[Rfam]
RNA sequence: GGUCUUUCCCCGCGCCGCGGCUAUGCCUAUAUUCACGGUGCCGCUCGCAAGAGCGGCUAUGGCGAUAAACGGAUUUCGGAAUAAGCCUUUCGGACCCGGGGGCGGUACCCGGCGCCUCCACCAAAGCCCUGGCGACAGGGAGCCUUGCCGCAAGCGCGCAGGGCUUUGGCGGGGGCGAAAUAGGAUCGACGAGGGUGUAAAGGACUUCCUUUUGCUCGGCAUGGUUCCGCCGUUAUCGGGCCAAAAGCAUAGUUGCCAACGACAACAAUGCUCGGGUUGCUGUCGCCGCGUAAUGCGGUGCUGGUUCCCAAACCAAAGCCCUUGCGUUUAGCCGCGUAAGGCGGGGCUCGGAGGCGCCUGGCAACAGAAGCCUCCACU
Number, nucleotide and partner (000 for none) at each position: 001g000002g000003u000004c000005u000006u000007u000008c000009c000010c000011c000012g000013c000014g000015c000016c000017g000018c000019g000020g000021c000022u000023a000024u000025g000026c000027c000028u000029a000030u000031a000032u000033u000034c000035a000036c000037g000038g000039u000040g057041c056042c055043g054044c053045u052046c051047g000048c000049a000050a000051g046052a045053g044054c043055g042056g041057c040058u000059a000060u000061g216062g215063c214064g213065a212066u000067a000068a000069a000070c000071g209072g208073a207074u000075u000076u204077c203078g000079g000080a000081a000082u000083a000084a000085g000086c195087c194088u193089u000090u192091c191092g190093g000094a000095c000096c112097c111098g110099g109100g108101g000102g000103c000104g000105g000106u000107a000108c100109c099110c098111g097112g096113c177114g176115c175116c174117u173118c172119c171120a000121c000122c000123a000124a000125a000126g000127c000128c000129c000130u000131g000132g000133c000134g000135a000136c000137a000138g000139g000140g000141a000142g000143c000144c000145u000146u000147g000148c000149c000150g000151c000152a000153a000154g000155c000156g000157c000158g000159c000160a000161g000162g000163g000164c000165u000166u000167u000168g000169g000170c000171g119172g118173g117174g116175g115176c114177g113178a000179a000180a000181u000182a000183g000184g000185a000186u000187c000188g000189a000190c092191g091192a090193g088194g087195g086196u000197g000198u000199a000200a000201a000202g000203g077204a076205c000206u000207u073208c072209c071210u000211u000212u065213u064214g063215c062216u061217c232218g231219g230220c229221a000222u243223g242224g241225u000226u240227c239228c238229g220230c219231c218232g217233u000234u000235a000236u000237c000238g228239g227240g226241c224242c223243a222244a000245a000246a000247g000248c000249a000250u000251a000252g000253u000254u000255g000256c000257c000258a000259a000260c000261g000262a000263c000264a000265a000266c000267a000268a000269u000270g000271c000272u000273c000274g000275g000276g000277u000278u000279g000280c000281u000282g000283u000284c000285g000286c000287c000288g000289c000290g000291u000292a000293a000294u000295g000296c000297g000298g000299u000300g000301c000302u000303g000304g000305u000306u000307c000308c000309c000310a000311a000312a000313c000314c000315a000316a000317a000318g000319c000320c000321c000322u000323u000324g000325c000326g000327u000328u000329u000330a000331g000332c000333c000334g000335c000336g000337u000338a000339a000340g000341g000342c000343g000344g359345g358346g357347c356348u000349c000350g375351g374352a373353g372354g371355c370356g347357c346358c345359u344360g000361g000362c000363a000364a000365c000366a000367g000368a000369a000370g355371c354372c353373u352374c351375c350376a000377c000378u000
A member of the RNA family "Alphaproteobacteria transfer-messenger RNA" from Allobosea spartocytisi, 378 nucleotides long. The match comes from Rfam's covariance-model search (306 bits). The family's RNA type in Rfam is non-coding RNA gene. About the family: Bacterial tmRNA, also known as 10Sa RNA or SsrA, is named for its dual tRNA and mRNA-like properties.